[Rfam]
RNA sequence: AAAAAGGGCCUUUGUCUACAUGGCACUCGGUGUCUCACGACGCUGGGCGGAAUCGCAAUCAAGAGAUUUCGGAGGCACAAUUUUUACAACAGAGGCAGUUGGUGCUCGCUUGGCCUGACGCCUCG
Numbered sequence: 001a002a003a004a005a006g007g008g009c010c011u012u013u014g015u016c017u018a019c020a021u022g023g024c025a026c027u028c029g030g031u032g033u034c035u036c037a038c039g040a041c042g043c044u045g046g047g048c049g050g051a052a053u054c055g056c057a058a059u060c061a062a063g064a065g066a067u068u069u070c071g072g073a074g075g076c077a078c079a080a081u082u083u084u085u086a087c088a089a090c091a092g093a094g095g096c097a098g099u100u101g102g103u104g105c106u107c108g109c110u111u112g113g114c115c116u117g118a119c120g121c122c123u124c125g
Base pairs, nucleotide, nucleotide: 008076009075010074011073012072013025014024015023016022026047027046028045029044030043031042032041033040034039048071049070050069051068052067053066054065093123094122095121096120098119099118100117101116102115104114105113106112
RNA: U11 spliceosomal RNA